[Rfam]
RNA sequence: ACGUACAUAUUGCCGAAUUUCCACAGCGGAAAACGGGGGAUCCAAAUACCCGGGUGAAUUGAUCUCGCAACAGAGUGAUCAUAGGGAGCCUUCAACCGAACCCUUAAGCUAACCUCGUAGGCAUCGGAAGGGGAAAAU
Numbered sequence: 001a002c003g004u005a006c007a008u009a010u011u012g013c014c015g016a017a018u019u020u021c022c023a024c025a026g027c028g029g030a031a032a033a034c035g036g037g038g039g040a041u042c043c044a045a046a047u048a049c050c051c052g053g054g055u056g057a058a059u060u061g062a063u064c065u066c067g068c069a070a071c072a073g074a075g076u077g078a079u080c081a082u083a084g085g086g087a088g089c090c091u092u093c094a095a096c097c098g099a100a101c102c103c104u105u106a107a108g109c110u111a112a113c114c115u116c117g118u119a120g121g122c123a124u125c126g127g128a129a130g131g132g133g134a135a136a137a138u
Stems, first nucleotide, its partner, number of pairs: 011123004018032003033118006052103003060081004084097002
Background
The record is a 138-nucleotide RNA sequence from Paenibacillus sp. OAS669, which matches "c-di-AMP riboswitch aptamer (ydaO/yuaA leader)" in Rfam. The family has 106 seed sequences and 7,607 matches in Rfam 15.1.